[Rfam]
RNA: mir-124 microRNA precursor family
Nucleotides: 062
Base pairs, nucleotide, nucleotide: 010062011061012060013059014058015057016056018054019053020052023049024048025047026046027045028044029043030042
Number, partner (000 for none) and nucleotide at each position: 001000a002000g003000c004000g005000u006000u007000u008000c009000g010062u011061g012060u013059u014058c015057a016056c017000c018054g019053c020052g021000g022000a023049c024048c025047u026046u027045g028044a029043u030042u031000u032000a033000a034000c035000g036000u037000c038000a039000c040000a041000c042030a043029a044028u045027u046026a047025a048024g049023g050000c051000a052020c053019g054018c055000g056016g057015u058014g059013a060012a061011u062010g